Rfam assigns this 97-nucleotide RNA from Azomonas agilis to the family "Alpha operon ribosome binding site". Its family is annotated with ribosome binding in the Gene Ontology. From the family's description: The bacterial alpha operon ribosome binding site is surrounded by this complex pseudoknotted structure. Translation of the mRNA produces 4 ribosomal protein products, one of which (S4) acts as a translational repressor by binding to the nested pseudoknot region. The mechanism of repression is thought to involve a conformational switch in the pseudoknot region and ribosome entrapment. For this family Rfam cites "Translational repression of the Escherichia coli alpha operon mRNA: importance of an mRNA conformational switch and a ternary entrapment complex" (Schlax et al., J Biol Chem, 2001).
RNA sequence: AAUGGCUAAUACCUUUUUCUUGGCUUCCAAGGUAUUAAGCUGCUGUCAAUCGGAGUUUCACUGAAUGGCCCGUAUUGCAGGCGUAAACAUUCCAGAU
Numbered sequence: 001a002a003u004g005g006c007u008a009a010u011a012c013c014u015u016u017u018u019c020u021u022g023g024c025u026u027c028c029a030a031g032g033u034a035u036u037a038a039g040c041u042g043c044u045g046u047c048a049a050u051c052g053g054a055g056u057u058u059c060a061c062u063g064a065a066u067g068g069c070c071c072g073u074a075u076u077g078c079a080g081g082c083g084u085a086a087a088c089a090u091u092c093c094a095g096a097u
Base pairs, nucleotide, nucleotide: 004041005040006039007037008036009035010034011033012032013031019081020080021079022070023069